[Rfam]
RNA sequence: GAUUAUCUUCAGGGUAUGGUGAGUUAUCAAGUUUGAUAAUAAAUCCAGACCGGUGGUAAAAGUCCACGAGCUCAAGCUGAACUGGUGUAAUUCCAGUACCGACGGUAAAGUCCGGAUAAAGAAGAUCGUA
Number, nucleotide and partner (000 for none) at each position: 001g000002a000003u128004u000005a126006u125007c124008u123009u122010c121011a000012g000013g000014g000015u000016a000017u047018g046019g045020u000021g000022a000023g000024u000025u000026a000027u000028c000029a000030a000031g000032u000033u000034u000035g000036a000037u000038a000039a000040u000041a000042a000043a000044u000045c019046c018047a017048g000049a111050c110051c101052g100053g067054u066055g065056g064057u000058a000059a000060a000061a000062g099063u098064c056065c055066a054067c053068g000069a000070g077071c076072u000073c000074a000075a000076g071077c070078u000079g000080a000081a097082c096083u095084g094085g093086u000087g000088u000089a000090a000091u000092u000093c085094c084095a083096g082097u081098a063099c062100c052101g051102a000103c114104g113105g112106u000107a000108a000109a000110g050111u049112c105113c104114g103115g000116a000117u000118a000119a000120a000121g010122a009123a008124g007125a006126u005127c000128g003129u000130a000
RNA: FMN riboswitch aptamer (RFN element)